Rfam assigns this 101-nucleotide RNA from Limosilactobacillus reuteri to the family "azaaromatic riboswitch aptamer (yjdF RNA)".
Lineage of the source: Bacteria > Bacillota > Bacilli > Lactobacillales > Limosilactobacillus reuteri.
Pairs were carried over by alignment from the consensus structure, which is taken from published work.
[Rfam]
RNA sequence: ACCUUAGAAAGUAAAAACACAGUUCGGUUGGUAGUCCGGACAUCAGUUCAAGCUGAUCAGUAUCCUUCCUCUCCGGGAUGUCCCUCUUUCAUAAUUUAUUU
Numbered sequence: 001a002c003c004u005u006a007g008a009a010a011g012u013a014a015a016a017a018c019a020c021a022g023u024u025c026g027g028u029u030g031g032u033a034g035u036c037c038g039g040a041c042a043u044c045a046g047u048u049c050a051a052g053c054u055g056a057u058c059a060g061u062a063u064c065c066u067u068c069c070u071c072u073c074c075g076g077g078a079u080g081u082c083c084c085u086c087u088u089u090c091a092u093a094a095u096u097u098a099u100u101u
Base pairs, nucleotide, nucleotide: 004094005093006092007090008089009088010087011086022041023040024039025038026037027036042057043056044055045054046053047052067078068077069076070075